The record is a 263-nucleotide part of an RNA from Oceanithermus profundus, which matches "Bacterial large subunit ribosomal RNA" in Rfam. The organism belongs to Oceanithermus profundus, within Bacteria. The match comes from Rfam's covariance-model search (2756 bits).

RNA sequence: AGGAGGUUUGAGGGGAGCUGCUCCUAGUACGAGAGGACCGGAGUGGACGUACCUCUGGUAUCCCUGCUGUCCCUCCCGGGGCAUAAGCAGGGUAGCCAUGUACGGUCGGGAUAACCGCUGAAAGCAUCUAAGCGGGAAGCCCACCCCAAGAUGAGACCUCCCACUGGGUCAACCAGGUAAGGACCCCGGUAGAUCACCGGGUUGAUAGGCCGGAGGUGUAAGCGCGGCGACGCGUUGAGCUGACCGGUCCUAAUCGUCCGAGG
Numbered sequence: 001a002g003g004a005g006g007u008u009u010g011a012g013g014g015g016a017g018c019u020g021c022u023c024c025u026a027g028u029a030c031g032a033g034a035g036g037a038c039c040g041g042a043g044u045g046g047a048c049g050u051a052c053c054u055c056u057g058g059u060a061u062c063c064c065u066g067c068u069g070u071c072c073c074u075c076c077c078g079g080g081g082c083a084u085a086a087g088c089a090g091g092g093u094a095g096c097c098a099u100g101u102a103c104g105g106u107c108g109g110g111a112u113a114a115c116c117g118c119u120g121a122a123a124g125c126a127u128c129u130a131a132g133c134g135g136g137a138a139g140c141c142c143a144c145c146c147c148a149a150g151a152u153g154a155g156a157c158c159u160c161c162c163a164c165u166g167g168g169u170c171a172a173c174c175a176g177g178u179a180a181g182g183a184c185c186c187c188g189g190u191a192g193a194u195c196a197c198c199g200g201g202u203u204g205a206u207a208g209g210c211c212g213g214a215g216g217u218g219u220a221a222g223c224g225c226g227g228c229g230a231c232g233c234g235u236u237g238a239g240c241u242g243a244c245c246g247g248u249c250c251u252a253a254u255c256g257u258c259c260g261a262g263g
Stems, first nucleotide, its partner, number of pairs: 002161008012147004018046007048104005056098003063091005068083006108142003115135005164176003178261001181259004185201005206252003209248005215241002222235005